[Rfam]
The family of this 81-nucleotide sequence from Myotis brandtii is "mir-574 microRNA precursor family". The literature on the family includes a 2007 paper in Cancer Res by Lui et al., "Patterns of known and novel small RNAs in human cervical cancer". It scores 85 bits against the family's covariance model.
RNA sequence: AGGUCCAGAGAGAGAGGCAAGGUCUGAUCCGCAGCCUCCAUGGCAGCUGUUGAGCAGCACUUGCUUCUCUCUUUCUCUCUG
Numbered sequence: 001a002g003g004u005c006c007a008g009a010g011a012g013a014g015a016g017g018c019a020a021g022g023u024c025u026g027a028u029c030c031g032c033a034g035c036c037u038c039c040a041u042g043g044c045a046g047c048u049g050u051u052g053a054g055c056a057g058c059a060c061u062u063g064c065u066u067c068u069c070u071c072u073u074u075c076u077c078u079c080u081g
Stems, first nucleotide, its partner, number of pairs: 008073013024057003028053002032049004